[Rfam]
RNA: Acido-Lenti-1 RNA
RNA sequence: CCCAAGGCUCACGCCAUUGGGCUACAUUAUAACAUGCCUUAGGCAUU
Numbered sequence: 001c002c003c004a005a006g007g008c009u010c011a012c013g014c015c016a017u018u019g020g021g022c023u024a025c026a027u028u029a030u031a032a033c034a035u036g037c038c039u040u041a042g043g044c045a046u047u
Stems, first nucleotide, its partner, number of pairs: 001021005006015003034046005